RNA sequence: CUAUCUCUCUUCGGAGAGAGACAGGAUUCAGCUUUGCUGUAAUCCAGAGAGAGGGC
Numbered sequence: 001c002u003a004u005c006u007c008u009c010u011u012c013g014g015a016g017a018g019a020g021a022c023a024g025g026a027u028u029c030a031g032c033u034u035u036g037c038u039g040u041a042a043u044c045c046a047g048a049g050a051g052a053g054g055g056c
Base pairs, nucleotide, nucleotide: 004021005020006019007018008017009016010015024045025044026043027042028041031038

The family of this 56-nucleotide RNA from Gracilimonas mengyeensis is "Whalefall-1 RNA". The family has 14 seed sequences and 134 matches in Rfam 15.1. The family's consensus secondary structure is taken from published work.